[Rfam]
RNA sequence: UGGGUCGGCAAGACGGUCGCGUCAGCCUUCGGGCUGCCGAGGAACGUCCGGGCUCCGCAGAGCAGGGCGGUGGGCAACACCCACCCGGGGCAACCCGCGAGACAGUGCCACAGAGAACAGACCGCCUCUCGUCGUCAGACCUGAGGUAAGGGUGAAACGGUGGGGUAAGAGCCCACCAGCGACCGGGGUGACCCGGCCGGCUCGGCAAACCUCGCCCGGAGCAAGGUCAGACAGGGGACCAUGAGACUGCUCGUCUCGUCCCCGGGUAGACCGCUGGAGCGGCGCGGCAACGUGUCGCCGAGAGAGAUGGCCGUCCAGGAAUCCGCGGGAAACGCGAUUCCGAACAGAACCCGGCGUAUCAGCCGGCCCAUUCC
Numbered sequence: 001u002g003g004g005u006c007g008g009c010a011a012g013a014c015g016g017u018c019g020c021g022u023c024a025g026c027c028u029u030c031g032g033g034c035u036g037c038c039g040a041g042g043a044a045c046g047u048c049c050g051g052g053c054u055c056c057g058c059a060g061a062g063c064a065g066g067g068c069g070g071u072g073g074g075c076a077a078c079a080c081c082c083a084c085c086c087g088g089g090g091c092a093a094c095c096c097g098c099g100a101g102a103c104a105g106u107g108c109c110a111c112a113g114a115g116a117a118c119a120g121a122c123c124g125c126c127u128c129u130c131g132u133c134g135u136c137a138g139a140c141c142u143g144a145g146g147u148a149a150g151g152g153u154g155a156a157a158c159g160g161u162g163g164g165g166u167a168a169g170a171g172c173c174c175a176c177c178a179g180c181g182a183c184c185g186g187g188g189u190g191a192c193c194c195g196g197c198c199g200g201c202u203c204g205g206c207a208a209a210c211c212u213c214g215c216c217c218g219g220a221g222c223a224a225g226g227u228c229a230g231a232c233a234g235g236g237g238a239c240c241a242u243g244a245g246a247c248u249g250c251u252c253g254u255c256u257c258g259u260c261c262c263c264g265g266g267u268a269g270a271c272c273g274c275u276g277g278a279g280c281g282g283c284g285c286g287g288c289a290a291c292g293u294g295u296c297g298c299c300g301a302g303a304g305a306g307a308u309g310g311c312c313g314u315c316c317a318g319g320a321a322u323c324c325g326c327g328g329g330a331a332a333c334g335c336g337a338u339u340c341c342g343a344a345c346a347g348a349a350c351c352c353g354g355c356g357u358a359u360c361a362g363c364c365g366g367c368c369c370a371u372u373c374c
Base pairs, nucleotide, nucleotide: 001370002369003368004367005366006365007364008363009362011359012315013314014313015312016311017310018309020039021038023036024035025034026033027032044357045356046355048354049353050352051351052350053221054220055219056218060252061251062250063249065217066216067215068214069213070084071083072082073081074080085099086097087096088095089094100212101211105210106209107206108205109204122151123150124147125146126145127144128143131140132139159177160176161175162174163173164172179201180199181198183196184195185194186193187192225272226271227270228269234263235262236261237260238259239258243257244256245255246254247253279298280297281296282295283294284293285292286291

The family of this 374-nucleotide RNA from Gryllotalpicola protaetiae is "Bacterial RNase P class A". The match comes from Rfam's covariance-model search (286 bits). Gene Ontology terms of the family: dimeric ribonuclease P complex, tRNA processing and ribonuclease P activity. The organism belongs to Gryllotalpicola, within Bacteria. Rfam classes the family as a ribozyme. Ribonuclease P (RNase P) is a ubiquitous endoribonuclease, found in archaea, bacteria and eukarya as well as chloroplasts and mitochondria.